RNA sequence: CAGAUAAAAUUGCGUUAUUGUUGCUAUUUUUUUUUAGACGAACAAUAAUAGAACUCGAAUAACAUUGAGUAAAUGAUUUUUUC
Numbered sequence: 001c002a003g004a005u006a007a008a009a010u011u012g013c014g015u016u017a018u019u020g021u022u023g024c025u026a027u028u029u030u031u032u033u034u035u036a037g038a039c040g041a042a043c044a045a046u047a048a049u050a051g052a053a054c055u056c057g058a059a060u061a062a063c064a065u066u067g068a069g070u071a072a073a074u075g076a077u078u079u080u081u082u083c
Stems, first nucleotide, its partner, number of pairs: 009066001011064002016059001022053001024051005031045002067078002070075001
Description
Shown here is an 83-nucleotide RNA from Pasteurella bettyae, a member of the family "Aggregatibacter sRNA 69". Pairs were carried over by alignment from the consensus structure, which was predicted with RNAfold. From the family's description: Validated by RT-PCR. Has Rho-independent terminator. It scores 57 bits against the family's covariance model.